[Rfam]
Nucleotides: 130
Base pairs, nucleotide, nucleotide: 002057003056005054006053007052008051014045015044017042018041019040021038022036024034070123071122073120077116078115079114082112083111085105086104087103089101090100092098
Number, partner (000 for none) and nucleotide at each position: 001000g002057g003056g004000g005054u006053g007052u008051g009000c010000u011000c012000a013000c014045a015044g016000a017042a018041g019040g020000g021038g022036g023000a024034c025000u026000g027000a028000a029000g030000a031000a032000a033000u034024g035000g036022c037000u038021c039000a040019u041018c042017u043000g044015c045014u046000u047000a048000c049000a050000a051008c052007a053006c054005a055000g056003c057002u058000g059000a060000c061000a062000g063000g064000a065000g066000u067000c068000u069000g070123g071122g072000u073120u074000c075000a076000u077116u078115g079114u080000g081000a082112c083111a084000a085105g086104g087103g088000g089101c090100a091000c092098a093000a094000a095000a096000u097000g098092u099000a100090u101089g102000a103087c104086c105085u106000u107000c108000c109000u110000a111083u112082g113000a114079a115078u116077a117000a118000c119000u120073a121000u122071c123070c124000a125000a126000c127000a128000u129000g130000u